[Rfam]
RNA sequence: UAAGCCAGAAGAGGCGCGUCGCCCAGGUACUGUGCCCGAGGAGCCCAUCCCGGGACGGCACAGAAGGGGGAGCGGCGCCGAGGUAAACUGCCACGGGCGCGGCAGGCUAUCGGCUGCAGGGGCUGAAUCCCCUGGGCUGUCACCAGAAAUGUUCGGCAGUCGGACAUUUCAUACCCCGGCAACCGGUUAAGACCGGCGGCUCCGGGGUAUACAAGGUGGGGCGCUUCUGGGUGU
Numbered sequence: 001u002a003a004g005c006c007a008g009a010a011g012a013g014g015c016g017c018g019u020c021g022c023c024c025a026g027g028u029a030c031u032g033u034g035c036c037c038g039a040g041g042a043g044c045c046c047a048u049c050c051c052g053g054g055a056c057g058g059c060a061c062a063g064a065a066g067g068g069g070g071a072g073c074g075g076c077g078c079c080g081a082g083g084u085a086a087a088c089u090g091c092c093a094c095g096g097g098c099g100c101g102g103c104a105g106g107c108u109a110u111c112g113g114c115u116g117c118a119g120g121g122g123c124u125g126a127a128u129c130c131c132c133u134g135g136g137c138u139g140u141c142a143c144c145a146g147a148a149a150u151g152u153u154c155g156g157c158a159g160u161c162g163g164a165c166a167u168u169u170c171a172u173a174c175c176c177c178g179g180c181a182a183c184c185g186g187u188u189a190a191g192a193c194c195g196g197c198g199g200c201u202c203c204g205g206g207g208u209a210u211a212c213a214a215g216g217u218g219g220g221g222c223g224c225u226u227c228u229g230g231g232u233g234u
Stems, first nucleotide, its partner, number of pairs: 006229006016078007024070001030063007082111004088105005112138004117134006140219005